[Rfam]
RNA: SAM-I/IV (S-adenosyl methionine) riboswitch aptamer
Organism: Bergeyella zoohelcum
RNA sequence: UACCGUUAUCAAGAAUCCUGAUAAAAAGGGUAGCAACCUGCAACAACAAGCAAGGUGCUGAAAAUGAUAAGCCGUUUCUGGAAAAAAUGUUGAUUCC
Numbered sequence: 001u002a003c004c005g006u007u008a009u010c011a012a013g014a015a016u017c018c019u020g021a022u023a024a025a026a027a028g029g030g031u032a033g034c035a036a037c038c039u040g041c042a043a044c045a046a047c048a049a050g051c052a053a054g055g056u057g058c059u060g061a062a063a064a065u066g067a068u069a070a071g072c073c074g075u076u077u078c079u080g081g082a083a084a085a086a087a088u089g090u091u092g093a094u095u096c097c
Base pairs, nucleotide, nucleotide: 006070007069008068009067010066015031017030018029019028032059033058034057037055038054039053040051041050046091072081073080074079